The family of this 338-nucleotide part of an RNA from Enterospora canceri is "Microsporidia small subunit ribosomal RNA". The family has 46 seed sequences and 1,035 matches in Rfam 15.1. The source organism's lineage runs through Eukaryota, Opisthokonta, Fungi, Apansporoblastina and Enterospora. Clan: SSU clan.
RNA sequence: CAGUUAAAGGGUCCGUAGUCGUAGAUGCAAUUAAAGGGUGGUGCUCAAGACCAUUAAGUUUGUUGUUUUUAGCGGAACGGAUAGGGAGCGUGGUAUAGGCGGGCCAAGAAUGAAAUCUCAAGACCCCGCCUGGACCAACUGAGGCGAAAGCGACGCUCUUAGACGUAUCUAAGGAUCAAGGACGAAGGCUAGAUUAUCGAAAGUGAUUAGACACCGCUGUAGUUCUAGCAGUAAACGAUGCCGACAGCUCCUGCUGCGAAAGUGGUGGGAGCAAGAGAAAUCAUAGUUUUCGGGCUCUGGGGAUAGUACACUCGCAAGAGUGAAACUUAAAGCGAGAU
Numbered sequence: 001c002a003g004u005u006a007a008a009g010g011g012u013c014c015g016u017a018g019u020c021g022u023a024g025a026u027g028c029a030a031u032u033a034a035a036g037g038g039u040g041g042u043g044c045u046c047a048a049g050a051c052c053a054u055u056a057a058g059u060u061u062g063u064u065g066u067u068u069u070u071a072g073c074g075g076a077a078c079g080g081a082u083a084g085g086g087a088g089c090g091u092g093g094u095a096u097a098g099g100c101g102g103g104c105c106a107a108g109a110a111u112g113a114a115a116u117c118u119c120a121a122g123a124c125c126c127c128g129c130c131u132g133g134a135c136c137a138a139c140u141g142a143g144g145c146g147a148a149a150g151c152g153a154c155g156c157u158c159u160u161a162g163a164c165g166u167a168u169c170u171a172a173g174g175a176u177c178a179a180g181g182a183c184g185a186a187g188g189c190u191a192g193a194u195u196a197u198c199g200a201a202a203g204u205g206a207u208u209a210g211a212c213a214c215c216g217c218u219g220u221a222g223u224u225c226u227a228g229c230a231g232u233a234a235a236c237g238a239u240g241c242c243g244a245c246a247g248c249u250c251c252u253g254c255u256g257c258g259a260a261a262g263u264g265g266u267g268g269g270a271g272c273a274a275g276a277g278a279a280a281u282c283a284u285a286g287u288u289u290u291c292g293g294g295c296u297c298u299g300g301g302g303a304u305a306g307u308a309c310a311c312u313c314g315c316a317a318g319a320g321u322g323a324a325a326c327u328u329a330a331a332g333c334g335a336g337a338u
Base pairs, nucleotide, nucleotide: 001299002298003297011183012182013181014180018176019175020174074170075169076168077166078165079164082161085159086158087157088156089155090154091153092136093135096132097131098130099129100128101127102126103125107118108117109116144151145150188229189228190227191226192225193224198222202218203217204216205215240295241294242293243288244287245286247272248271249270250269251268252267253266254265255264256263275282276281301328302327310321311320312319313318